Shown here is a 52-nucleotide RNA sequence, a member of the family "L31-Actinobacteria ribosomal protein leader". For this family Rfam cites "Discovery of 20 novel ribosomal leader candidates in bacteria and archaea" (Eckert and Weinberg, BMC Microbiol, 2020). Rfam's curators put it in the seed alignment.

[Rfam]
RNA sequence: CGGGCUCCGGUUCACCCCGGUCGGUGUUCGACCGAUCCGAGGACCCGGCGCC
Dot-bracket structure: ..(((.((((....((.((((((((.....))))).))).))..)))).)))